The family of this 211-nucleotide RNA sequence from Marivita geojedonensis is "permuted transfer-messenger RNA". Gene Ontology term of the family: RNA catabolic process.
RNA sequence: GGACAUAAACGCGCGUUCAAUAAGCGGCUCGGACCCGGGGGCGGUACCCGGCGGCUCCACCAAAAACCUGUCAUUUGCAGGAUCAUGGGGCCGAAACAGGAUCGACGAACGUCUAAACACGUUAGCUUUGUCCCGGUUAGAUACCACCGUUAUCGGUUCAAACAGUAUAGUUGCAAAUGACAACCAUGCUCCGGUGGCAAUGGCUGCGUAA
Numbered sequence: 001g002g003a004c005a006u007a008a009a010c011g012c013g014c015g016u017u018c019a020a021u022a023a024g025c026g027g028c029u030c031g032g033a034c035c036c037g038g039g040g041g042c043g044g045u046a047c048c049c050g051g052c053g054g055c056u057c058c059a060c061c062a063a064a065a066a067c068c069u070g071u072c073a074u075u076u077g078c079a080g081g082a083u084c085a086u087g088g089g090g091c092c093g094a095a096a097c098a099g100g101a102u103c104g105a106c107g108a109a110c111g112u113c114u115a116a117a118c119a120c121g122u123u124a125g126c127u128u129u130g131u132c133c134c135g136g137u138u139a140g141a142u143a144c145c146a147c148c149g150u151u152a153u154c155g156g157u158u159c160a161a162a163c164a165g166u167a168u169a170g171u172u173g174c175a176a177a178u179g180a181c182a183a184c185c186a187u188g189c190u191c192c193g194g195u196g197g198c199a200a201u202g203g204c205u206g207c208g209u210a211a
Stems, first nucleotide, its partner, number of pairs: 001133005013122004025111002029108003035051005052093007134149004
NCBI's taxonomy places the organism under Bacteria, Alphaproteobacteria, Rhodobacterales, Roseobacteraceae, Marivita.